[Rfam]
RNA sequence: UCUCAUGCUGUGACCCUCUAAAGGGACGUGCGUUCUGUUGUGUGAAAGGAAACACACGCCAUCCCUUUGGAGUGUUACCGCUUGAGA
Numbered sequence: 001u002c003u004c005a006u007g008c009u010g011u012g013a014c015c016c017u018c019u020a021a022a023g024g025g026a027c028g029u030g031c032g033u034u035c036u037g038u039u040g041u042g043u044g045a046a047a048g049g050a051a052a053c054a055c056a057c058g059c060c061a062u063c064c065c066u067u068u069g070g071a072g073u074g075u076u077a078c079c080g081c082u083u084g085a086g087a
Stems, first nucleotide, its partner, number of pairs: 001087005007081002010078005016072003020068007028060001030059004034054001038052002
Dot-bracket structure: (((((.((.(((((.(((.(((((((.(.(((((...((...........)).).))))).))))))).))).))))).)).)))))
The family of this 87-nucleotide RNA sequence from Callithrix jacchus is "mir-515 microRNA precursor family". Taxonomically the source falls in Callithrix (Eukaryota, Opisthokonta, Mammalia, Cebidae).